Shown here is a 232-nucleotide sequence from Aureimonas glaciei, a member of the family "permuted transfer-messenger RNA". The family's consensus secondary structure is taken from published work.
[Rfam]
RNA sequence: GGCGAUAAACCGCCGAUGAAAUAAGCCAUUCGGACCCGGGGGCGGUACCCGGCGCCUCCACCUGAGUUCUUCCCCGAAGGAUCGCUUCCUUCCCGCGAAGAGCUGAGGCGGGGGCGAAAUAGGAUCGACGAGGGUGUAAAGAUCGGAACUUUGCUCGGCAUUGUACCACCGUUAUCGGGCUGUAUCAGUAGUUGCCAAUGACAACUAUGCGGAAGCCCGUCUCGCAGCCUAA
Numbered sequence: 001g002g003c004g005a006u007a008a009a010c011c012g013c014c015g016a017u018g019a020a021a022u023a024a025g026c027c028a029u030u031c032g033g034a035c036c037c038g039g040g041g042g043c044g045g046u047a048c049c050c051g052g053c054g055c056c057u058c059c060a061c062c063u064g065a066g067u068u069c070u071u072c073c074c075c076g077a078a079g080g081a082u083c084g085c086u087u088c089c090u091u092c093c094c095g096c097g098a099a100g101a102g103c104u105g106a107g108g109c110g111g112g113g114g115c116g117a118a119a120u121a122g123g124a125u126c127g128a129c130g131a132g133g134g135u136g137u138a139a140a141g142a143u144c145g146g147a148a149c150u151u152u153g154c155u156c157g158g159c160a161u162u163g164u165a166c167c168a169c170c171g172u173u174a175u176c177g178g179g180c181u182g183u184a185u186c187a188g189u190a191g192u193u194g195c196c197a198a199u200g201a202c203a204a205c206u207a208u209g210c211g212g213a214a215g216c217c218c219g220u221c222u223c224g225c226a227g228c229c230u231a232a
Stems, first nucleotide, its partner, number of pairs: 001155005014145004026134002030131003036052005053116007156171003